[Rfam]
Nucleotides: 059
Base pairs, nucleotide, nucleotide: 004050005049006048007047008046010024011023012022013021014020035059036058037057038056039055041053042052
Number, partner (000 for none) and nucleotide at each position: 001000u002000u003000u004050c005049g006048u007047u008046c009000a010024c011023c012022u013021u014020c015000a016000u017000u018000a019000u020014g021013a022012g023011g024010g025000c026000g027000c028000a029000g030000u031000u032000c033000g034000a035059g036058u037057c038056a039055u040000a041053c042052c043000a044000u045000g046008g047007a048006a049005c050004g051000g052042g053041g054000g055039a056038u057037g058036a059035c
Shown here is a 59-nucleotide RNA, a member of the family "Glutamine-II riboswitch aptamer". Rfam's curators put it in the seed alignment.